[Rfam]
RNA sequence: GAUUGCGGUUAAUAGGGUAGGAUGAGAACCGUAGGUUCGACCAAAUCGCCGGGAGCGAUUUGGAACGCUGCGCGCAGCGUGGCGGCCCGUAGGGCGGAGGGCAGGAUGCCCAGAGUAAUCCUACUCUCUCCACCA
Numbered sequence: 001g002a003u004u005g006c007g008g009u010u011a012a013u014a015g016g017g018u019a020g021g022a023u024g025a026g027a028a029c030c031g032u033a034g035g036u037u038c039g040a041c042c043a044a045a046u047c048g049c050c051g052g053g054a055g056c057g058a059u060u061u062g063g064a065a066c067g068c069u070g071c072g073c074g075c076a077g078c079g080u081g082g083c084g085g086c087c088c089g090u091a092g093g094g095c096g097g098a099g100g101g102c103a104g105g106a107u108g109c110c111c112a113g114a115g116u117a118a119u120c121c122u123a124c125u126c127u128c129u130c131c132a133c134c135a
Base pairs, nucleotide, nucleotide: 015126016125017124018123019122020121021120023118030096031095036091038089039088043061044060045059046058047057048056049055066084067083068082069081070080071079
Description
A member of the RNA family "RtT RNA" from Nitrococcus mobilis, 135 nucleotides long. NCBI's taxonomy places the organism under Bacteria, Pseudomonadota, Gammaproteobacteria, Ectothiorhodospiraceae, Nitrococcus mobilis. A reference for the family is Bosl and Kersten (1991), "A novel RNA product of the tyrT operon of Escherichia coli", Nucleic Acids Res. About the family: This family represents a bacterial cis-regulatory element known as RtT RNA. The exact function of RtT is unknown although it is thought that it may be involved in changing the cellular response in relation to amino acid starvation. It is annotated as a cis-regulatory element. Its family is annotated with cellular response to amino acid starvation in the Gene Ontology.